[Rfam]
Shown here is a 78-nucleotide RNA sequence from Teladorsagia circumcincta, a member of the family "SmY spliceosomal RNA".
RNA sequence: UGAAAUCUUGAUUUCUUGGCAGGGCCUUCACUAAGACCCGAGGCUCGAAUUUUUGGGUGCUCCUACGAGGUAGGAGCU
Numbered sequence: 001u002g003a004a005a006u007c008u009u010g011a012u013u014u015c016u017u018g019g020c021a022g023g024g025c026c027u028u029c030a031c032u033a034a035g036a037c038c039c040g041a042g043g044c045u046c047g048a049a050u051u052u053u054u055g056g057g058u059g060c061u062c063c064u065a066c067g068a069g070g071u072a073g074g075a076g077c078u
Stems, first nucleotide, its partner, number of pairs: 022039003026035003059077008

The match comes from Rfam's covariance-model search (40 bits). On this family, see MacMorris et al., RNA 2007: "A novel family of C. elegans snRNPs contains proteins associated with trans-splicing". Rfam 15.1 lists 408 matches to the family in 67 species. The family's RNA type in Rfam is spliceosomal small nuclear RNA. The base pairs follow the family's consensus structure, which is taken from published work.